[Rfam]
RNA sequence: GAGUGGCUUUAGGGGUAUUCUUUCAUAAGAAUUGAGACAGUCCCUUCGAACCUGAUUCGGAUCAUACCGACGUAGGGAAAAGCGUGUAGCAGAUC
Number, nucleotide and partner (000 for none) at each position: 001g000002a000003g000004u000005g000006g083007c082008u081009u080010u079011a045012g044013g043014g042015g000016u039017a032018u031019u030020c029021u028022u000023u000024c000025a000026u000027a000028a021029g020030a019031a018032u017033u000034g000035a000036g000037a000038c000039a016040g000041u000042c014043c013044c012045u011046u000047c000048g000049a000050a000051c076052c075053u074054g073055a000056u000057u070058c069059g068060g067061a000062u000063c000064a000065u000066a000067c060068c059069g058070a057071c000072g000073u054074a053075g052076g051077g000078a000079a010080a009081a008082g007083c006084g000085u000086g000087u000088a000089g000090c000091a000092g000093a000094u000095c000
Shown here is a 95-nucleotide RNA from Sphingobacterium corticibacter, a member of the family "TPP riboswitch aptamer (THI element)".
The match comes from Rfam's covariance-model search (73 bits).
Pairs were carried over by alignment from the consensus structure, which is taken from published work.
Lineage of the source: Bacteria > Bacteroidota > Sphingobacteriia > Sphingobacteriales > Sphingobacterium.